[Rfam]
RNA sequence: AAAAUUCUUCGGGGCAGGGUGUAAUUCCCUACCGGCGGUGACAGUCCGCGACCCAUGCAAAUGGCUGAACUGGUGUAAUUCCAGUACCGACAGUAUAGUCUGGAUGUGAGAAGAAGGUA
Numbered sequence: 001a002a003a004a005u006u007c008u009u010c011g012g013g014g015c016a017g018g019g020u021g022u023a024a025u026u027c028c029c030u031a032c033c034g035g036c037g038g039u040g041a042c043a044g045u046c047c048g049c050g051a052c053c054c055a056u057g058c059a060a061a062u063g064g065c066u067g068a069a070c071u072g073g074u075g076u077a078a079u080u081c082c083a084g085u086a087c088c089g090a091c092a093g094u095a096u097a098g099u100c101u102g103g104a105u106g107u108g109a110g111a112a113g114a115a116g117g118u119a
Stems, first nucleotide, its partner, number of pairs: 005115006017029003031099002033089002035049004044087002053064002069085005091102003
FMN riboswitch aptamer (RFN element): a 119-nucleotide RNA sequence from Lactonifactor longoviformis. A search with the family's covariance model found it, with a score of 116 bits. Rfam describes the family as follows. The RFN element is a highly conserved domain that is found frequently in the 5'-untranslated regions of prokaryotic mRNAs that encode for flavin mononucleotide (FMN) biosynthesis and transport proteins.